[Rfam]
RNA sequence: CGCUCCCUGCGGUGUUCGAGACCGGCUGCAAUUUCUCUGAACCAAUGCAUACGUGCAAGGCUGCGGUCUAUUCCGGCGCGGGUGUGCGCGUGACACGUCUCAUGCGCCCAAAGUGCCUUUGAGCGCGGCCAUCUUGAACCCAGGUUCAAGAGUCCGCGGCCGGCCACGGCACAGGCGGGGAGCCC
Numbered sequence: 001c002g003c004u005c006c007c008u009g010c011g012g013u014g015u016u017c018g019a020g021a022c023c024g025g026c027u028g029c030a031a032u033u034u035c036u037c038u039g040a041a042c043c044a045a046u047g048c049a050u051a052c053g054u055g056c057a058a059g060g061c062u063g064c065g066g067u068c069u070a071u072u073c074c075g076g077c078g079c080g081g082g083u084g085u086g087c088g089c090g091u092g093a094c095a096c097g098u099c100u101c102a103u104g105c106g107c108c109c110a111a112a113g114u115g116c117c118u119u120u121g122a123g124c125g126c127g128g129c130c131a132u133c134u135u136g137a138a139c140c141c142a143g144g145u146u147c148a149a150g151a152g153u154c155c156g157c158g159g160c161c162g163g164c165c166a167c168g169g170c171a172c173a174g175g176c177g178g179g180g181a182g183c184c185c
Stems, first nucleotide, its partner, number of pairs: 002183009012172004017168002035152003038148006059130003063126003067122002070120001075117005086107002089104005

This 185-nucleotide RNA from Betaproteobacteria bacterium SCN1 belongs to the Rfam family "6S / SsrS RNA". Pairs were carried over by alignment from the consensus structure, which is taken from published work. Rfam describes the family as follows. E. coli 6S RNA was the first non coding RNA to be sequenced, but its function was unknown until recently. It consists of 184 nucleotides that fold into an extended hairpin structure with a large single-stranded internal bulge. The 6S RNA specifically associates with RNA polymerase holoenzyme containing the sigma70 specificity factor. Lineage of the source: Bacteria > Pseudomonadati > Pseudomonadota > Betaproteobacteria. A search with the family's covariance model found it, with a score of 69 bits.